[Rfam]
RNA sequence: GCUGAGGAAUGAUGACAGUAAAAGGCCGAAUUGCAGUGCUCCCCGAAGCAGGUUGCUCUCCUUGGAGCACCAUGACAAAGUCUCCUGAAGCGAAUCACUAGUCUGACCUCAGU
Numbered sequence: 001g002c003u004g005a006g007g008a009a010u011g012a013u014g015a016c017a018g019u020a021a022a023a024g025g026c027c028g029a030a031u032u033g034c035a036g037u038g039c040u041c042c043c044c045g046a047a048g049c050a051g052g053u054u055g056c057u058c059u060c061c062u063u064g065g066a067g068c069a070c071c072a073u074g075a076c077a078a079a080g081u082c083u084c085c086u087g088a089a090g091c092g093a094a095u096c097a098c099u100a101g102u103c104u105g106a107c108c109u110c111a112g113u
Base pairs, nucleotide, nucleotide: 001113002112003111004110005109006108007107014103015102016101025034026033035099036098037097038096042092043090047086048085051071054069055068056067057066058065072083074081

Small nucleolar RNA SNORD89: a 113-nucleotide RNA sequence from Crypturellus undulatus. On this family, see Huttenhofer et al., EMBO J 2001: "RNomics: an experimental approach that identifies 201 candidates for novel, small, non-messenger RNAs in mouse". The base pairs follow the family's consensus structure, which was predicted with RNAalifold. snoRNA HBII-289 belongs to the family of C/D snoRNAs. It is the human orthologue of the mouse MBII-289 and has no identified RNA target.